[Rfam]
RNA: Small nucleolar RNA snR8
Organism: Lachancea lanzarotensis
RNA sequence: GUGAUACGAAAUUAUAUUCGCCUUCUAUUCACUGUGCCAUCUGUAAUAUCCGUAGAUGAUCAGAGGGGAAAAGAACGGCCAGACGGAAAAUCGCCAGCGUCCUCAUACUGUCCGAAUCGAUAAAGUUUACUCUACUGGGUUCGGUCGGUAACUGCGCAAGCGAGACAACU
Numbered sequence: 001g002u003g004a005u006a007c008g009a010a011a012u013u014a015u016a017u018u019c020g021c022c023u024u025c026u027a028u029u030c031a032c033u034g035u036g037c038c039a040u041c042u043g044u045a046a047u048a049u050c051c052g053u054a055g056a057u058g059a060u061c062a063g064a065g066g067g068g069a070a071a072a073g074a075a076c077g078g079c080c081a082g083a084c085g086g087a088a089a090a091u092c093g094c095c096a097g098c099g100u101c102c103u104c105a106u107a108c109u110g111u112c113c114g115a116a117u118c119g120a121u122a123a124a125g126u127u128u129a130c131u132c133u134a135c136u137g138g139g140u141u142c143g144g145u146c147g148g149u150a151a152c153u154g155c156g157c158a159a160g161c162g163a164g165a166c167a168a169c170u
Stems, first nucleotide, its partner, number of pairs: 020079002023075002032065002035062002038058005092162003097157003108148003112144007